RNA sequence: CAGUCCGCCACGUGGGACACCCGCACCGGGGCUCCCGCCGCGCGGUUACCCUGACCGCGUGCACCCUUGGAACGGCAAGGGUGCAAAGCCGACAGCCGUCGCAUCCCAGGGAGCUCUCCAUG
Dot-bracket structure: ...........................................................((((.((((........)))).))))..((.(((....)))))....................